[Rfam]
RNA sequence: GGAACCUUUAAAUCCAGUCCAGUGAGGCUGGCAAGGGCACGGAAAUGUAAAAAAGGGUUGGUAUGCCCUUUUUCAGGAGGUCUUUGUCUGCCGUCUGGCAAGACAAAGACUUUUUUUGU
Numbered sequence: 001g002g003a004a005c006c007u008u009u010a011a012a013u014c015c016a017g018u019c020c021a022g023u024g025a026g027g028c029u030g031g032c033a034a035g036g037g038c039a040c041g042g043a044a045a046u047g048u049a050a051a052a053a054a055g056g057g058u059u060g061g062u063a064u065g066c067c068c069u070u071u072u073u074c075a076g077g078a079g080g081u082c083u084u085u086g087u088c089u090g091c092c093g094u095c096u097g098g099c100a101a102g103a104c105a106a107a108g109a110c111u112u113u114u115u116u117u118g119u
Base pairs, nucleotide, nucleotide: 005036006035007034008033014031015030016029017028018027019026050073051072052071053070054069055068056067057066058065076114077113078112079111080110081109082108083107084106085105086104087103088102089101
Rfam assigns this 119-nucleotide sequence from Thermoactinomyces sp. AS95 to the family "PyrR binding site". Taxonomically the source falls in Thermoactinomyces (Bacteria, Bacillati, Bacilli, Caryophanales). Pairs were carried over by alignment from the consensus structure, which is taken from published work. Rfam classes the family as a cis-regulatory element.